[Rfam]
Description: Rfam assigns this 104-nucleotide RNA from Lactovum miscens to the family "L17 ribosomal protein downstream element". It scores 55 bits against the family's covariance model. Rfam classes the family as a cis-regulatory element.
RNA sequence: UGAGUGUAAUGAUGUUGGCGGUGCGUUUGAGUUGGAAAAUUUUAUUUUCUGAGUAGCGUUGCUUAGUCUAGCUCGUGAUUCCGAGGAACAAUUCUGUUCCUCGG
Numbered sequence: 001u002g003a004g005u006g007u008a009a010u011g012a013u014g015u016u017g018g019c020g021g022u023g024c025g026u027u028u029g030a031g032u033u034g035g036a037a038a039a040u041u042u043u044a045u046u047u048u049c050u051g052a053g054u055a056g057c058g059u060u061g062c063u064u065a066g067u068c069u070a071g072c073u074c075g076u077g078a079u080u081c082c083g084a085g086g087a088a089c090a091a092u093u094c095u096g097u098u099c100c101u102c103g104g
Stems, first nucleotide, its partner, number of pairs: 002074004011068003017063008081104009